Streptomyces RNA 6106: an 86-nucleotide RNA sequence from Streptomyces sp. HG99. NCBI's taxonomy places the organism under Bacteria, Actinomycetota, Actinomycetes, Streptomycetaceae, Streptomyces. From the family's description: Identified by deep sequencing of transcriptome at the end of exponential growth phase. Appears smaller on northern blot than sequencing transcript. This indicates processing step. For this family Rfam cites "Deep sequencing-based identification of small non-coding RNAs in Streptomyces coelicolor" (Vockenhuber et al., RNA Biol, 2011).
RNA sequence: ACGUCGCCUGUGCGGCGUCCGUGCUCCUUGAUACGGGGCCACAAGGCGGGGGUGGUGCCGUGUCGGCGCAGCACCACCCCCGCAUC
Numbered sequence: 001a002c003g004u005c006g007c008c009u010g011u012g013c014g015g016c017g018u019c020c021g022u023g024c025u026c027c028u029u030g031a032u033a034c035g036g037g038g039c040c041a042c043a044a045g046g047c048g049g050g051g052g053u054g055g056u057g058c059c060g061u062g063u064c065g066g067c068g069c070a071g072c073a074c075c076a077c078c079c080c081c082g083c084a085u086c
Stems, first nucleotide, its partner, number of pairs: 001018007021042003026037003046083013060069003